[Rfam]
RNA sequence: CCGCCCGCAAGGGGGAGCCGAGAGGCUGAGAGGUCCUGGAGACAGGACGACCCCGGAACCUGAUCUGGUUAGUACCAGCGGAGGGAUUGUGGAAGGCGCGGUC
Numbered sequence: 001c002c003g004c005c006c007g008c009a010a011g012g013g014g015g016a017g018c019c020g021a022g023a024g025g026c027u028g029a030g031a032g033g034u035c036c037u038g039g040a041g042a043c044a045g046g047a048c049g050a051c052c053c054c055g056g057a058a059c060c061u062g063a064u065c066u067g068g069u070u071a072g073u074a075c076c077a078g079c080g081g082a083g084g085g086a087u088u089g090u091g092g093a094a095g096g097c098g099c100g101g102u103c
Base pairs, nucleotide, nucleotide: 006091007090008089009088010087011054012053013052014051017026018025019024033048034047035046036045037044059084060083061082065078066077067076068075